[Rfam]
RNA sequence: ACCUGAAUACAAGCUUAAUAAUGCAUAUGCCCGGGGAUAUGGCCCGGGUGUUUCUACCGGGUCACCUUAAAUGACUUGACUGCAUUUAUUGAAGCGGGAUAC
Numbered sequence: 001a002c003c004u005g006a007a008u009a010c011a012a013g014c015u016u017a018a019u020a021a022u023g024c025a026u027a028u029g030c031c032c033g034g035g036g037a038u039a040u041g042g043c044c045c046g047g048g049u050g051u052u053u054c055u056a057c058c059g060g061g062u063c064a065c066c067u068u069a070a071a072u073g074a075c076u077u078g079a080c081u082g083c084a085u086u087u088a089u090u091g092a093a094g095c096g097g098g099a100u101a102c
Stems, first nucleotide, its partner, number of pairs: 020086006029049007058078007
Dot-bracket structure: ...................((((((...(((((((.......)))))))........(((((((.......)))))))..))))))................